[Rfam]
RNA sequence: UGUCUCAAAGAUUAAGCCAUGCAUGUCUAAGUCCAAGCUGUGUUUACACGGCGAGACCGCGGACGGCUCAUUAAAAUCAGUCGUUGUCCAAAUGGGCCAGUCCUUACUACUUGGAUAACUGUGGUAAUUCCAGAGCUAAUACAUGCAACUGUUAACCCCGAAGGCGGGAGCUUGCCUCUUGCUCGACGGGUGCUUUUAUUAGACCAAACCGCUGGGAGAGACUCACGUCUCUCGACUCGCUGUGUGGUGACUCUGGAUAACCAAUUUUGACAAGCGCACGUACCCCUCGUGGGACGGCGCUGCCACUUUCGAGUGUCUGCCUUAUCAGCUGUCAACCGUUCGUUACACGCGACCGAUGGCUUUGACGGGUAACGGGGAAUCAGGGUUCGAUUCCGGAGAGGCAGCCUGAGAGACGGCUACCACGUCCAAGGACGGCAGCAGGCACGCAAAUUACCCAAUCCCAGCACCUGGGGGAGGUAGUGACGAAACCUAACGAUGCGGGCGCCCUUUACGGGCCCCGCAAUCGGAAUGAGCACUUUCUAAACAACCUGUUGAGAACCUA
Numbered sequence: 001u002g003u004c005u006c007a008a009a010g011a012u013u014a015a016g017c018c019a020u021g022c023a024u025g026u027c028u029a030a031g032u033c034c035a036a037g038c039u040g041u042g043u044u045u046a047c048a049c050g051g052c053g054a055g056a057c058c059g060c061g062g063a064c065g066g067c068u069c070a071u072u073a074a075a076a077u078c079a080g081u082c083g084u085u086g087u088c089c090a091a092a093u094g095g096g097c098c099a100g101u102c103c104u105u106a107c108u109a110c111u112u113g114g115a116u117a118a119c120u121g122u123g124g125u126a127a128u129u130c131c132a133g134a135g136c137u138a139a140u141a142c143a144u145g146c147a148a149c150u151g152u153u154a155a156c157c158c159c160g161a162a163g164g165c166g167g168g169a170g171c172u173u174g175c176c177u178c179u180u181g182c183u184c185g186a187c188g189g190g191u192g193c194u195u196u197u198a199u200u201a202g203a204c205c206a207a208a209c210c211g212c213u214g215g216g217a218g219a220g221a222c223u224c225a226c227g228u229c230u231c232u233c234g235a236c237u238c239g240c241u242g243u244g245u246g247g248u249g250a251c252u253c254u255g256g257a258u259a260a261c262c263a264a265u266u267u268u269g270a271c272a273a274g275c276g277c278a279c280g281u282a283c284c285c286c287u288c289g290u291g292g293g294a295c296g297g298c299g300c301u302g303c304c305a306c307u308u309u310c311g312a313g314u315g316u317c318u319g320c321c322u323u324a325u326c327a328g329c330u331g332u333c334a335a336c337c338g339u340u341c342g343u344u345a346c347a348c349g350c351g352a353c354c355g356a357u358g359g360c361u362u363u364g365a366c367g368g369g370u371a372a373c374g375g376g377g378a379a380u381c382a383g384g385g386u387u388c389g390a391u392u393c394c395g396g397a398g399a400g401g402c403a404g405c406c407u408g409a410g411a412g413a414c415g416g417c418u419a420c421c422a423c424g425u426c427c428a429a430g431g432a433c434g435g436c437a438g439c440a441g442g443c444a445c446g447c448a449a450a451u452u453a454c455c456c457a458a459u460c461c462c463a464g465c466a467c468c469u470g471g472g473g474g475a476g477g478u479a480g481u482g483a484c485g486a487a488a489c490c491u492a493a494c495g496a497u498g499c500g501g502g503c504g505c506c507c508u509u510u511a512c513g514g515g516c517c518c519c520g521c522a523a524u525c526g527g528a529a530u531g532a533g534c535a536c537u538u539u540c541u542a543a544a545c546a547a548c549c550u551g552u553u554g555a556g557a558a559c560c561u562a
Base pairs, nucleotide, nucleotide: 002489003488005486006485009481010445016443017442018441020440021439022438025060026059031057032056037052038051067398068397069396078319079318080317083314084313087312088311094306096304110145112143113142119135120134122132123131124130157190158189159188160187163184164183196260197259198258199257200256208248209247210246211245227236228235229234274300275299276298277297279296280295281294321369322368323367328360329359330358335357337355338354340352341351342350373395374394375393376392377388378387379386380385400421401420403418404417405416423434424433425432426431451479453478454477455476459474460473461472462471494526495525496524497522498521499520500519501518502517504516505515506514507513533553535550539547
Dot-bracket structure: .((.((..((.....(((.(((..((....((....((............))...)).))......(((........(((..((..((.....(.(.............(.((.....((.(((.....))).))......)).)...........((((..((..................))..)))).....(((((.......((((...............(((....)))........)))).......))))).............((((.(((............)))))))...).)....))))..))).(((....(((....(.((.(((.......))).)).))))......)))...((((((((....))))...))))))).((.(((..........))).)).((((....))))...)))))).).....(.(((...((((........)))).)))).)...)).))....(((((((((.((((.....)))))))))).)))......(.(...(.......)..)..).........